[Rfam]
RNA sequence: GCAGCGGGUGCCUAGGGUUCCGAUCCUCUUUUUUGAAGGGUGCAGGUCCGAGAGGUACCAUCCGGCCGGUGAAGGUCGGAAACACGGCGGGGCAAAAUCCCGGGAGAU
Numbered sequence: 001g002c003a004g005c006g007g008g009u010g011c012c013u014a015g016g017g018u019u020c021c022g023a024u025c026c027u028c029u030u031u032u033u034u035g036a037a038g039g040g041u042g043c044a045g046g047u048c049c050g051a052g053a054g055g056u057a058c059c060a061u062c063c064g065g066c067c068g069g070u071g072a073a074g075g076u077c078g079g080a081a082a083c084a085c086g087g088c089g090g091g092g093c094a095a096a097a098u099c100c101c102g103g104g105a106g107a108u
Stems, first nucleotide, its partner, number of pairs: 007059006015049002020046002022043001023041005061080007083103001085106001089101003
Rfam assigns this 108-nucleotide RNA to the family "Guanidine-I riboswitch aptamer". Pairs were carried over by alignment from the consensus structure. A search with the family's covariance model found it, with a score of 83 bits.